This 64-nucleotide RNA belongs to the Rfam family "Glutamine riboswitch aptamer (glnA leader)".
RNA sequence: AUCGUUCAUCUUUAAAAAUUUAUUUUUAAAGACGGGAAGUAGACGAAAGUUGAAGGAACGCAUG
Numbered sequence: 001a002u003c004g005u006u007c008a009u010c011u012u013u014a015a016a017a018a019u020u021u022a023u024u025u026u027u028a029a030a031g032a033c034g035g036g037a038a039g040u041a042g043a044c045g046a047a048a049g050u051u052g053a054a055g056g057a058a059c060g061c062a063u064g
Stems, first nucleotide, its partner, number of pairs: 003060005009032010035061001042051003

Rfam links the family to the GO term glutamine binding. A reference for the family is Ren et al. (2015), "Structural and Dynamic Basis for Low-Affinity, High-Selectivity Binding of L-Glutamine by the Glutamine Riboswitch", Cell Rep.